[Rfam]
RNA sequence: CAAGUCGGGUCGCCGGAACAGACGUUCGUCCGUAGGACACGGACGGGGCGUCGGCUCCGGGCAACCCUUGGGGUGAAGCCGCGGCAACGCGGCCGGGCAACUUCGCCAGCCCGAAUCCGACAGGUCAUCCUUCACAGGCGGCUGACGAAGGGUUG
Numbered sequence: 001c002a003a004g005u006c007g008g009g010u011c012g013c014c015g016g017a018a019c020a021g022a023c024g025u026u027c028g029u030c031c032g033u034a035g036g037a038c039a040c041g042g043a044c045g046g047g048g049c050g051u052c053g054g055c056u057c058c059g060g061g062c063a064a065c066c067c068u069u070g071g072g073g074u075g076a077a078g079c080c081g082c083g084g085c086a087a088c089g090c091g092g093c094c095g096g097g098c099a100a101c102u103u104c105g106c107c108a109g110c111c112c113g114a115a116u117c118c119g120a121c122a123g124g125u126c127a128u129c130c131u132u133c134a135c136a137g138g139c140g141g142c143u144g145a146c147g148a149a150g151g152g153u154u155g
Stems, first nucleotide, its partner, number of pairs: 011140004018029002032133001034131002040070002071118003079092004095112004
RNA: c-di-AMP riboswitch aptamer (ydaO/yuaA leader)